[Rfam]
A member of the RNA family "Group I catalytic intron" from Sordaria macrospora, 290 nucleotides long.
Its family is annotated with Group I intron splicing in the Gene Ontology.
From the family's description: Group I catalytic introns are large self-splicing ribozymes. They catalyse their own excision from mRNA, tRNA and rRNA precursors in a wide range of organisms. The core secondary structure consists of 9 paired regions (P1-P9). These fold to essentially two domains - the P4-P6 domain (formed from the stacking of P5, P4, P6 and P6a helices) and the P3-P9 domain (formed from the P8, P3, P7 and P9 helices).

RNA sequence: GGCCUACAAUAGAAAUUGUGUAGUGCAAAAGGGAGAUAUAAUAUAUUAAACUUCCUGAAAAACUUGGUAAAUUGCUGGAAAGACGUCUAAUCCCACUCGUCCCCCCUCCAGCUUCGCUCUGGAGGGGGUAGCGAGUGUUACGUACAAUCAGCAGGUGGUAAUUUUUCCUCAUCCGGAGGAUGAGAGUAAAGCCACUUCAACGACUAGAGACCAAGUAUCCUAACCUAAAUAAUUAAGGUUUUAUUUAGGAAGGGUAAUGAUAUAGUCUAAAUUAUUAGUGACGAAUAAGC
Numbered sequence: 001g002g003c004c005u006a007c008a009a010u011a012g013a014a015a016u017u018g019u020g021u022a023g024u025g026c027a028a029a030a031g032g033g034a035g036a037u038a039u040a041a042u043a044u045a046u047u048a049a050a051c052u053u054c055c056u057g058a059a060a061a062a063c064u065u066g067g068u069a070a071a072u073u074g075c076u077g078g079a080a081a082g083a084c085g086u087c088u089a090a091u092c093c094c095a096c097u098c099g100u101c102c103c104c105c106c107u108c109c110a111g112c113u114u115c116g117c118u119c120u121g122g123a124g125g126g127g128g129u130a131g132c133g134a135g136u137g138u139u140a141c142g143u144a145c146a147a148u149c150a151g152c153a154g155g156u157g158g159u160a161a162u163u164u165u166u167c168c169u170c171a172u173c174c175g176g177a178g179g180a181u182g183a184g185a186g187u188a189a190a191g192c193c194a195c196u197u198c199a200a201c202g203a204c205u206a207g208a209g210a211c212c213a214a215g216u217a218u219c220c221u222a223a224c225c226u227a228a229a230u231a232a233u234u235a236a237g238g239u240u241u242u243a244u245u246u247a248g249g250a251a252g253g254g255u256a257a258u259g260a261u262a263u264a265g266u267c268u269a270a271a272u273u274a275u276u277a278g279u280g281a282c283g284a285a286u287a288a289g290c
Base pairs, nucleotide, nucleotide: 001024005020006019007018008017009016010015030039062216063215064214065213066212068210073153074152075151076150077149078148083143084142085141086140154196155195162191163190164189165188168184169183170182171181172180173179174178200268202267203266204265205264206263218254219253220252221251275288276287277286279284